[Rfam]
RNA: Selenocysteine insertion sequence 1
RNA sequence: CUGACCUUAAUGAUGUCAAUGGAGUAAAGCUUUCAGGACCUCCAUUGGCUGAUGUGGCAUGAC
Numbered sequence: 001c002u003g004a005c006c007u008u009a010a011u012g013a014u015g016u017c018a019a020u021g022g023a024g025u026a027a028a029g030c031u032u033u034c035a036g037g038a039c040c041u042c043c044a045u046u047g048g049c050u051g052a053u054g055u056g057g058c059a060u061g062a063c
Base pairs, nucleotide, nucleotide: 002062004060015049016048017047018046019045020044021043022042023041024040030037031036